[Rfam]
RNA sequence: CACAGGGUUGGCACCCUGUGCUUUGGUAUGUCGCCCUUUCAGGGCU
Numbered sequence: 001c002a003c004a005g006g007g008u009u010g011g012c013a014c015c016c017u018g019u020g021c022u023u024u025g026g027u028a029u030g031u032c033g034c035c036c037u038u039u040c041a042g043g044g045c046u
Base pairs, nucleotide, nucleotide: 001020002019003018004017005016006015007014008013033045034044035043036042037041

This 46-nucleotide RNA sequence from Cyclonatronum proteinivorum belongs to the Rfam family "Acido-Lenti-1 RNA". By type it is a small RNA. Lineage of the source: Bacteria > Pseudomonadati > Balneolota > Cyclonatronaceae > Cyclonatronum. Pairs were carried over by alignment from the consensus structure, which is taken from published work.